M-box riboswitch aptamer (ykoK leader): a 158-nucleotide RNA sequence from Bifidobacterium aquikefiri.
A search with the family's covariance model found it, with a score of 105 bits.
About the family: M-box riboswitch, also know as ykoK leader is described as a metaloregulatory RNA that sense divalent metals and function as a genetic control element of genes related to divalent metal transport in bacteria. It was first reported upstream of the B.subtilis ykoK gene and genes with related functions in other bacteria.
RNA sequence: UUUAGCUGUCGGUAGGCGAGACUACCACGGGGAUACGGGUUGCUGCCGCAGCAUAGUGGAGACACUGUUCGUCGGUCAACAAUUUUUGUCGAGUCAAGGCAUUGAUUAAUGUAACAUCACUGCCCCGUGAAGUUGAAGCUUGAACGAUGACAUCUUGA
Numbered sequence: 001u002u003u004a005g006c007u008g009u010c011g012g013u014a015g016g017c018g019a020g021a022c023u024a025c026c027a028c029g030g031g032g033a034u035a036c037g038g039g040u041u042g043c044u045g046c047c048g049c050a051g052c053a054u055a056g057u058g059g060a061g062a063c064a065c066u067g068u069u070c071g072u073c074g075g076u077c078a079a080c081a082a083u084u085u086u087u088g089u090c091g092a093g094u095c096a097a098g099g100c101a102u103u104g105a106u107u108a109a110u111g112u113a114a115c116a117u118c119a120c121u122g123c124c125c126c127g128u129g130a131a132g133u134u135g136a137a138g139c140u141u142g143a144a145c146g147a148u149g150a151c152a153u154c155u156u157g158a
Base pairs, nucleotide, nucleotide: 005154007152008151009150010149011145013097015140016139017138020134021133022132026129027128028127029126030125031124032123039115040114041113042112043111045076046075047074048073055066056065057064058063082106083105084104088100089099090098